[Rfam]
RNA sequence: UGGCAACAGUGAUGAAGGAUUCGGAGCUGGAGGUGACGCGCCGUUACCGCGUGGAGACACCAGUCCCUCUAAACUGACGUUGCCG
Numbered sequence: 001u002g003g004c005a006a007c008a009g010u011g012a013u014g015a016a017g018g019a020u021u022c023g024g025a026g027c028u029g030g031a032g033g034u035g036a037c038g039c040g041c042c043g044u045u046a047c048c049g050c051g052u053g054g055a056g057a058c059a060c061c062a063g064u065c066c067c068u069c070u071a072a073a074c075u076g077a078c079g080u081u082g083c084c085g
Base pairs, nucleotide, nucleotide: 001085002084003083004082005081006080007079

Annotation:
The record is an 85-nucleotide RNA from Heliornis fulica, which matches "Small nucleolar RNA SNORD127" in Rfam. Lineage of the source: Eukaryota > Opisthokonta > Deuterostomia > Archelosauria > Heliornis. By type it is a C/D-box small nucleolar RNA.